RNA sequence: CGGGAUUCGUCCCGUUACAAAGGAAUGUAGCCCGUCAUGGGCCGAACCUUGAG
Numbered sequence: 001c002g003g004g005a006u007u008c009g010u011c012c013c014g015u016u017a018c019a020a021a022g023g024a025a026u027g028u029a030g031c032c033c034g035u036c037a038u039g040g041g042c043c044g045a046a047c048c049u050u051g052a053g
Stems, first nucleotide, its partner, number of pairs: 001014005021049003030042004
Shown here is a 53-nucleotide sequence from Methanoregula boonei, a member of the family "eL15-Euryarchaeota ribosomal protein leader".
The base pairs follow the family's consensus structure, which is taken from published work.
The literature on the family includes a 2020 paper in BMC Microbiol by Eckert and Weinberg, "Discovery of 20 novel ribosomal leader candidates in bacteria and archaea".
Taxonomically the source falls in Methanoregula boonei (Archaea, Methanobacteriati, Methanomicrobia, Methanomicrobiales).
It is one of the family's seed sequences.